RNA sequence: AUCAAGCUUCAGGGUACUGUGUAAUUCAGAAUCGGUGGUAAAGUCCAUGAGCUGCGUCAGCAGUUGAUUCGGUGAAAUUCCGAAACCGACGGUAUAGUCCGGAUGAAAGAAGAACGAU
Numbered sequence: 001a002u003c004a005a006g007c008u009u010c011a012g013g014g015u016a017c018u019g020u021g022u023a024a025u026u027c028a029g030a031a032u033c034g035g036u037g038g039u040a041a042a043g044u045c046c047a048u049g050a051g052c053u054g055c056g057u058c059a060g061c062a063g064u065u066g067a068u069u070c071g072g073u074g075a076a077a078u079u080c081c082g083a084a085a086c087c088g089a090c091g092g093u094a095u096a097g098u099c100c101g102g103a104u105g106a107a108a109g110a111a112g113a114a115c116g117a118u
Stems, first nucleotide, its partner, number of pairs: 003116001007112004017029003031098002033088002035048004043086002051064003068084005090101003
Dot-bracket structure: ..(...((((......(((.......))).[[((((((....[[))))..(((........)))...(((((.......)))))]])).(((....]]))).......))))...)..

Shown here is a 118-nucleotide RNA from Ruminococcus sp. CAG:254, a member of the family "FMN riboswitch aptamer (RFN element)". The match comes from Rfam's covariance-model search (101 bits). Pairs were carried over by alignment from the consensus structure, which is taken from published work. Lineage of the source: Bacteria > Clostridia > Eubacteriales > Oscillospiraceae > Ruminococcus.